[Rfam]
RNA sequence: GGUCACGAGUAUCAGCAUGUUCGAGCCCCGGCUCGCUGAUCGGCAACCCUCGCUCGGCGGUGGGGUGCCCCGGGUGACGACCAGGCGCUCUCGCCACGAGAGCGCAAGCGCCGAAC
Numbered sequence: 001g002g003u004c005a006c007g008a009g010u011a012u013c014a015g016c017a018u019g020u021u022c023g024a025g026c027c028c029c030g031g032c033u034c035g036c037u038g039a040u041c042g043g044c045a046a047c048c049c050u051c052g053c054u055c056g057g058c059g060g061u062g063g064g065g066u067g068c069c070c071c072g073g074g075u076g077a078c079g080a081c082c083a084g085g086c087g088c089u090c091u092c093g094c095c096a097c098g099a100g101a102g103c104g105c106a107a108g109c110g111c112c113g114a115a116c
Stems, first nucleotide, its partner, number of pairs: 001082004009041001011040006024033002042069003047065003051060001085105009
Rfam assigns this 116-nucleotide sequence from Nocardia asteroides to the family "SAM (S-adenosyl methionine) riboswitch aptamer". It scores 96 bits against the family's covariance model. Rfam describes the family as follows. SAM-IV is a mRNA element that regulates gene expression via direct sensing of S-adenosylmethionine (SAM or AdoMet). Pairs were carried over by alignment from the consensus structure, which is taken from published work. NCBI's taxonomy places the organism under Bacteria, Actinomycetes, Nocardiaceae, Nocardia, Nocardia asteroides.